A member of the RNA family "sRNA-Xcc1" from Ramlibacter sp. Leaf400, 88 nucleotides long. The literature on the family includes a 1996 paper in Mol Plant Microbe Interact by Wengelnik et al., "HrpG, a key hrp regulatory protein of Xanthomonas campestris pv. vesicatoria is homologous to two-component response regulators". By type it is a small RNA. The match comes from Rfam's covariance-model search (68 bits). Taxonomically the source falls in Ramlibacter (Bacteria, Pseudomonadota, Burkholderiales, Comamonadaceae).

RNA sequence: GGCCGGGUGGCGCGCAGGGAUACAAGACCUUCGGGGAAAACUGCGGGCCGGACCUGACGACGGUGUUCAAGCACCCGGCCACCUCAUG
Numbered sequence: 001g002g003c004c005g006g007g008u009g010g011c012g013c014g015c016a017g018g019g020a021u022a023c024a025a026g027a028c029c030u031u032c033g034g035g036g037a038a039a040a041c042u043g044c045g046g047g048c049c050g051g052a053c054c055u056g057a058c059g060a061c062g063g064u065g066u067u068c069a070a071g072c073a074c075c076c077g078g079c080c081a082c083c084u085c086a087u088g
Base pairs, nucleotide, nucleotide: 001080002079003078004077005076006075007074008073009072013045014044015043016042028035029034047064048063049062050061